[Rfam]
RNA: Plastid-rpl20 3UTR RNA
RNA sequence: ACGGAAUUCUUGAAGAGGUAUCUCUGGGAAGUUAAAAAAUUAUGAUUAAGGGGUAGGAAUGGACGAGCAUGUUUCAAU
Number, nucleotide and partner (000 for none) at each position: 001a000002c000003g000004g000005a000006a000007u030008u029009c028010u027011u026012g025013a000014a023015g022016a000017g000018g000019u000020a000021u000022c015023u014024c000025u012026g011027g010028g009029a008030a007031g000032u000033u000034a000035a000036a000037a000038a000039a000040u000041u000042a000043u000044g000045a000046u000047u000048a000049a000050g000051g000052g000053g000054u000055a000056g000057g000058a000059a000060u000061g074062g073063a072064c071065g000066a000067g000068c000069a000070u000071g064072u063073u062074u061075c000076a000077a000078u000